[Rfam]
RNA sequence: AUGCCUUAAACUUACCAGUAAGGAAACUAAUGAUUCGGGAUGAUGCCUGAAUCCUCACUGUUAAUGUAAAUGAAGUUUUGAGCUGGUAAAGCUUUCGCCUAAGGCGACCGGCCUACAUUGCAGGAUGCCUGGGAAUCACAAUCUGCCAU
Numbered sequence: 001a002u003g004c005c006u007u008a009a010a011c012u013u014a015c016c017a018g019u020a021a022g023g024a025a026a027c028u029a030a031u032g033a034u035u036c037g038g039g040a041u042g043a044u045g046c047c048u049g050a051a052u053c054c055u056c057a058c059u060g061u062u063a064a065u066g067u068a069a070a071u072g073a074a075g076u077u078u079u080g081a082g083c084u085g086g087u088a089a090a091g092c093u094u095u096c097g098c099c100u101a102a103g104g105c106g107a108c109c110g111g112c113c114u115a116c117a118u119u120g121c122a123g124g125a126u127g128c129c130u131g132g133g134a135a136u137c138a139c140a141a142u143c144u145g146c147c148a149u
Stems, first nucleotide, its partner, number of pairs: 004023005032053008055069001057067002084148004090144002093141002099133002102130005108124002111121002

Annotation: Rfam assigns this 149-nucleotide RNA from Crocuta crocuta to the family "U12 minor spliceosomal RNA". NCBI's taxonomy places the organism under Eukaryota, Deuterostomia, Amniota, Feliformia, Crocuta. The family's RNA type in Rfam is spliceosomal small nuclear RNA. A search with the family's covariance model found it, with a score of 95 bits. A reference for the family is Otake et al. (2002), "The divergent U12-type spliceosome is required for pre-mRNA splicing and is essential for development in Drosophila", Mol Cell.